[Rfam]
RNA sequence: AAUAAAAAUAAAGCGCCAGGGCAAUAAGGGAACGGAUACUUUAUUGCAGACGAGGACGAGGUUUAUCGAAUUUAUCGGCGGGUACCUCGGGGUAAGCUACUACCCUUAAAGAUAAGUAAAACAAAUAAGUAAUUAUUUGCACAACACUUAUCAGGUAGAAAA
Dot-bracket structure: ....................(((((((.(.........).))))))).........(((((....((((.....))))......)))))(((((......))))).....((((((.....(((((((....))))))).......))))))..........
Numbered sequence: 001a002a003u004a005a006a007a008a009u010a011a012a013g014c015g016c017c018a019g020g021g022c023a024a025u026a027a028g029g030g031a032a033c034g035g036a037u038a039c040u041u042u043a044u045u046g047c048a049g050a051c052g053a054g055g056a057c058g059a060g061g062u063u064u065a066u067c068g069a070a071u072u073u074a075u076c077g078g079c080g081g082g083u084a085c086c087u088c089g090g091g092g093u094a095a096g097c098u099a100c101u102a103c104c105c106u107u108a109a110a111g112a113u114a115a116g117u118a119a120a121a122c123a124a125a126u127a128a129g130u131a132a133u134u135a136u137u138u139g140c141a142c143a144a145c146a147c148u149u150a151u152c153a154g155g156u157a158g159a160a161a162a
Stems, first nucleotide, its partner, number of pairs: 021047007029039001057089005066078004090105005111152006122139007

glmS glucosamine-6-phosphate activated ribozyme aptamer: a 162-nucleotide RNA sequence from Senegalia massiliensis. By type it is a riboswitch.